[Rfam]
RNA sequence: CCACACUCUAGACUUAGCGGUCGAACGCCGACUCCUUCAUCGGCCGGGUGUGGCACCUAUUUUUGAAGG
Numbered sequence: 001c002c003a004c005a006c007u008c009u010a011g012a013c014u015u016a017g018c019g020g021u022c023g024a025a026c027g028c029c030g031a032c033u034c035c036u037u038c039a040u041c042g043g044c045c046g047g048g049u050g051u052g053g054c055a056c057c058u059a060u061u062u063u064u065g066a067a068g069g
Stems, first nucleotide, its partner, number of pairs: 001053008011022004028043004034069006
Description: A member of the RNA family "int-alpA RNA" from Duganella sp. CF517, 69 nucleotides long. Acidobacteria (1 example), Planctomycetes (1 example), Proteobacteria. Rfam 15.1 lists 577 matches to the family in 491 species. The family's consensus secondary structure is taken from published work. A search with the family's covariance model found it, with a score of 41 bits. By type it is a small RNA.